[Rfam]
RNA sequence: GGGCGGUUAGCUCAGAUGGUUAGAGCGCUGCGUUGACAUCGCAGAGGUCACUGGUUCGAAUCCAGUAUCGCCCA
Numbered sequence: 001g002g003g004c005g006g007u008u009a010g011c012u013c014a015g016a017u018g019g020u021u022a023g024a025g026c027g028c029u030g031c032g033u034u035g036a037c038a039u040c041g042c043a044g045a046g047g048u049c050a051c052u053g054g055u056u057c058g059a060a061u062c063c064a065g066u067a068u069c070g071c072c073c074a
Stems, first nucleotide, its partner, number of pairs: 001073007010026004028044005050066005
The record is a 74-nucleotide RNA sequence from Tepidiforma thermophila, which matches "tRNA" in Rfam. The family's RNA type in Rfam is transfer RNA. Rfam links the family to the GO term triplet codon-amino acid adaptor activity. A search with the family's covariance model found it, with a score of 70 bits.